[Rfam]
RNA sequence: AUGUGCUACGCGUCCAACACGGUCUCUGCGUGCUGUCCACAUCCGUCCGGCGGACCGCGCGCUACGUUUUGUCAGCC
Numbered sequence: 001a002u003g004u005g006c007u008a009c010g011c012g013u014c015c016a017a018c019a020c021g022g023u024c025u026c027u028g029c030g031u032g033c034u035g036u037c038c039a040c041a042u043c044c045g046u047c048c049g050g051c052g053g054a055c056c057g058c059g060c061g062c063u064a065c066g067u068u069u070u071g072u073c074a075g076c077c
Stems, first nucleotide, its partner, number of pairs: 002016002005013002020035004025030001047075001049073005